RNA sequence: UCACACGCCAACGGGGGCUCGCACCAGCGGGCUGAGAGGACGGCUAGCCCUUUCGGGCGAUCAGGGCUGUCGACCGUAUGAACCUGACCGGGUAAUGCCGGCGUAGGGAGGAAGAUCACGAUGAAC
Numbered sequence: 001u002c003a004c005a006c007g008c009c010a011a012c013g014g015g016g017g018c019u020c021g022c023a024c025c026a027g028c029g030g031g032c033u034g035a036g037a038g039g040a041c042g043g044c045u046a047g048c049c050c051u052u053u054c055g056g057g058c059g060a061u062c063a064g065g066g067c068u069g070u071c072g073a074c075c076g077u078a079u080g081a082a083c084c085u086g087a088c089c090g091g092g093u094a095a096u097g098c099c100g101g102c103g104u105a106g107g108g109a110g111g112a113a114g115a116u117c118a119c120g121a122u123g124a125a126c
Base pairs, nucleotide, nucleotide: 006114009111011077012076013075014074016071017032018031019030020029021028040070041069042068043067044066045065083107084106085105086104088101089100090099091098

TPP riboswitch aptamer (THI element): a 126-nucleotide sequence from Nocardia donostiensis.